[Rfam]
RNA sequence: CAAUGCAAGAAGAAGCGCCCGCUUCUCACCUGGCUGACUAAAUGAGUCUGCAGGUUACUUUAGUUGAUUACAAAUCAAUAGGUGUGGGCGUAAUAUGCGUCUACACCUUUUUUAUUUG
Numbered sequence: 001c002a003a004u005g006c007a008a009g010a011a012g013a014a015g016c017g018c019c020c021g022c023u024u025c026u027c028a029c030c031u032g033g034c035u036g037a038c039u040a041a042a043u044g045a046g047u048c049u050g051c052a053g054g055u056u057a058c059u060u061u062a063g064u065u066g067a068u069u070a071c072a073a074a075u076c077a078a079u080a081g082g083u084g085u086g087g088g089c090g091u092a093a094u095a096u097g098c099g100u101c102u103a104c105a106c107c108u109u110u111u112u113u114a115u116u117u118g
Base pairs, nucleotide, nucleotide: 011026012025013024014023015022016021028055029054030053034050036048037047038046083105084104085103086102087101088100089099090098091097092096

A member of the RNA family "Ribosomal protein L20 leader" from Anaerobacillus isosaccharinicus, 118 nucleotides long. Its family is annotated with regulation of gene expression in the Gene Ontology. A search with the family's covariance model found it, with a score of 68 bits. From the family's description: This family is a putative r-protein leader autoregulatory structure found in B. subtilis and other low-GC Gram-positive bacteria. It is located in the 5' untranslated regions of mRNAs encoding initiation factor 3 followed by ribosomal proteins L35 and L20 (infC-rpmI-rplT). A Rho-independent transcription terminator structure that is probably involved in regulation is included at the 3' end. Taxonomically the source falls in Anaerobacillus (Bacteria, Bacillota, Bacilli, Caryophanales). The base pairs follow the family's consensus structure, which was predicted with CMfinder.